About this RNA
A member of the RNA family "Mu-gpT-DE RNA", 53 nucleotides long. Rfam's curators put it in the seed alignment.

RNA sequence: CCCUGACAGGCGCAAUGGGCGUCUGACUUAACCCAAGACAGGAGAUAAUCAUG
Numbered sequence: 001c002c003c004u005g006a007c008a009g010g011c012g013c014a015a016u017g018g019g020c021g022u023c024u025g026a027c028u029u030a031a032c033c034c035a036a037g038a039c040a041g042g043a044g045a046u047a048a049u050c051a052u053g
Stems, first nucleotide, its partner, number of pairs: 002042004007025005
Pairs were carried over by alignment from the consensus structure, which is taken from published work. By type it is a small RNA.